Shown here is a 106-nucleotide sequence from Oryza meyeriana, a member of the family "Small nucleolar RNA Z188".
Gene Ontology terms of the family: RNA processing and nucleolus.
Pairs were carried over by alignment from the consensus structure, which was predicted with PFOLD.
[Rfam]
RNA sequence: GCUUGCCGGUGAUGAUUAAAGAACUAAGCAAUGGUGAAUUCGAUGAAUGUGCUCGCGUGCCGCUGGGUGCGCAGCUGCGGUGAUAUUCAGUUCAUCUGAGGCAAAC
Numbered sequence: 001g002c003u004u005g006c007c008g009g010u011g012a013u014g015a016u017u018a019a020a021g022a023a024c025u026a027a028g029c030a031a032u033g034g035u036g037a038a039u040u041c042g043a044u045g046a047a048u049g050u051g052c053u054c055g056c057g058u059g060c061c062g063c064u065g066g067g068u069g070c071g072c073a074g075c076u077g078c079g080g081u082g083a084u085a086u087u088c089a090g091u092u093c094a095u096c097u098g099a100g101g102c103a104a105a106c
Stems, first nucleotide, its partner, number of pairs: 003104005